[Rfam]
RNA sequence: UGCUCUCGAAGGUGCUUGGCAUCUUCACCUCCCUGUUGGACUUGGGCCGAGCUCUGCUCGGCCUUUUUU
Numbered sequence: 001u002g003c004u005c006u007c008g009a010a011g012g013u014g015c016u017u018g019g020c021a022u023c024u025u026c027a028c029c030u031c032c033c034u035g036u037u038g039g040a041c042u043u044g045g046g047c048c049g050a051g052c053u054c055u056g057c058u059c060g061g062c063c064u065u066u067u068u069u
Stems, first nucleotide, its partner, number of pairs: 008026007045063008